[Rfam]
A member of the RNA family "LOOT RNA", 125 nucleotides long.

RNA sequence: CGCCUAAACUCUAAAUAUUUUAGAGCAUGGCGGAAAAGAAUCCAGUACAGGAAACGAGAGCUCCUCGUUCAGCUCACCUGUACUGGUCAUAACUCGAAAGGGUUAUGGGAGUCCGAAAGGAUUCC
Number, nucleotide and partner (000 for none) at each position: 001c032002g031003c030004c029005u000006a000007a000008a000009c025010u024011c023012u022013a021014a020015a000016u000017a000018u000019u000020u014021u013022a012023g011024a010025g009026c000027a000028u000029g004030g003031c002032g001033g000034a000035a000036a000037a000038g000039a000040a000041u000042c086043c085044a084045g083046u082047a081048c080049a079050g078051g077052a000053a069054a068055c067056g066057a065058g064059a000060g000061c000062u000063c000064c058065u057066c056067g055068u054069u053070c000071a000072g000073c000074u000075c000076a000077c051078c050079u049080g048081u047082a046083c045084u044085g043086g042087u000088c107089a106090u105091a104092a103093c102094u101095c100096g000097a000098a000099a000100g095101g094102g093103u092104u091105a090106u089107g088108g125109g124110a123111g122112u121113c120114c000115g000116a000117a000118a000119g000120g113121a112122u111123u110124c109125c108

Source information
It is one of the family's seed sequences.